The record is a 108-nucleotide sequence from Salmonella enterica, which matches "iscR stability element" in Rfam. The organism belongs to Salmonella enterica subsp. enterica, within Bacteria. The base pairs follow the family's consensus structure, which is taken from published work. For this family Rfam cites "Small RNA-induced differential degradation of the polycistronic mRNA iscRSUA" (Desnoyers et al., EMBO J, 2009). The family's RNA type in Rfam is cis-regulatory element. It is one of the family's seed sequences.

[Rfam]
RNA sequence: AAAAAAGAAUUCAGAAUCAGGCCGGGACGCGGACGUCCCGUCAACACGGUCGUACAUCCAGCCGGUUGCCUGAUUCCUUGCAUUGAGUGAUGUACGGAGUUUAAGAGC
Numbered sequence: 001a002a003a004a005a006a007g008a009a010u011u012c013a014g015a016a017u018c019a020g021g022c023c024g025g026g027a028c029g030c031g032g033a034c035g036u037c038c039c040g041u042c043a044a045c046a047c048g049g050u051c052g053u054a055c056a057u058c059c060a061g062c063c064g065g066u067u068g069c070c071u072g073a074u075u076c077c078u079u080g081c082a083u084u085g086a087g088u089g090a091u092g093u094a095c096g097g098a099g100u101u102u103a104a105g106a107g108c
Base pairs, nucleotide, nucleotide: 008101009100010099011098012097014076015075016074017073018072019071020070021069022068023040024039025038026037027036028035044066045065047064048063049062079094081092082091083090